A member of the RNA family "mir-8517 microRNA precursor family" from Plutella xylostella, 108 nucleotides long. A search with the family's covariance model found it, with a score of 86 bits. NCBI's taxonomy places the organism under Eukaryota, Metazoa, Dicondylia, Amphiesmenoptera, Plutella. The family's consensus secondary structure was predicted with RNAalifold.
RNA sequence: UUACUGGACGAUUUAGCUAUUGAACUGUGUGACAGCUCUCUGAAAGAAAACUAUUAGUUCUUUGGCAGAGAGUGACAAAACAGUUCAAUAACUAAAGCGUCCAGUAAG
Numbered sequence: 001u002u003a004c005u006g007g008a009c010g011a012u013u014u015a016g017c018u019a020u021u022g023a024a025c026u027g028u029g030u031g032a033c034a035g036c037u038c039u040c041u042g043a044a045a046g047a048a049a050a051c052u053a054u055u056a057g058u059u060c061u062u063u064g065g066c067a068g069a070g071a072g073u074g075a076c077a078a079a080a081c082a083g084u085u086c087a088a089u090a091a092c093u094a095a096a097g098c099g100u101c102c103a104g105u106a107a108g
Base pairs, nucleotide, nucleotide: 001107002106003105004104005103006102012096013095014094015093016092018090019089020088021087022086023085024084025083026082027081028080030067031066033064034063049059050058051057052056